Annotation:
This 67-nucleotide sequence from Parafrankia sp. EUN1f belongs to the Rfam family "Transposase-2 RNA". The sequence is in the family's curated seed alignment. The family has 151 seed sequences and 214 matches in Rfam 15.1. The family's consensus secondary structure is taken from published work. The organism belongs to Parafrankia, within Bacteria. It is annotated as a small RNA.
[Rfam]
RNA sequence: GAAUCGGGAACCCGGCACCGCGCAAGCGGGUCAGACCGGGAGCGCCGUCCCACCGCGGACGGCUGCG
Number, nucleotide and partner (000 for none) at each position: 001g000002a000003a000004u000005c000006g000007g000008g000009a000010a000011c040012c039013c038014g037015g036016c000017a000018c029019c028020g027021c026022g000023c000024a000025a000026g021027c020028g019029g018030g000031u000032c000033a000034g000035a000036c015037c014038g013039g012040g011041a000042g000043c000044g063045c062046c061047g060048u059049c058050c057051c000052a000053c000054c000055g000056c000057g050058g049059a048060c047061g046062g045063c044064u000065g000066c000067g000